[Rfam]
RNA: Small nucleolar RNA Z194
RNA sequence: GGCUGAUUGAUGAUGAAACAAUUACCCCAAGCGCUUUUAUUCCACUGAUACCAGUGAUGGAAAGCUAUAUUAUCAUAGUUUUUAUGGUUUUCAAUCUGAACUGUAG
Numbered sequence: 001g002g003c004u005g006a007u008u009g010a011u012g013a014u015g016a017a018a019c020a021a022u023u024a025c026c027c028c029a030a031g032c033g034c035u036u037u038u039a040u041u042c043c044a045c046u047g048a049u050a051c052c053a054g055u056g057a058u059g060g061a062a063a064g065c066u067a068u069a070u071u072a073u074c075a076u077a078g079u080u081u082u083u084a085u086g087g088u089u090u091u092c093a094a095u096c097u098g099a100a101c102u103g104u105a106g
Base pairs, nucleotide, nucleotide: 004106006104007103030046031045033043060083061082062081063080064079065078066077067076068075